[Rfam]
RNA sequence: CGCUAAUUUUAGCAACCACACACACUUGACCGUCACAUCCUGCGGGGUGCCGAGGCCUUACGGCCCGGUCGCCGGAUGGGGCAAGUGGAGGCUCAAC
Numbered sequence: 001c002g003c004u005a006a007u008u009u010u011a012g013c014a015a016c017c018a019c020a021c022a023c024a025c026u027u028g029a030c031c032g033u034c035a036c037a038u039c040c041u042g043c044g045g046g047g048u049g050c051c052g053a054g055g056c057c058u059u060a061c062g063g064c065c066c067g068g069u070c071g072c073c074g075g076a077u078g079g080g081g082c083a084a085g086u087g088g089a090g091g092c093u094c095a096a097c
Stems, first nucleotide, its partner, number of pairs: 023087006030081002036078005042072003049069004
RNA: t44 RNA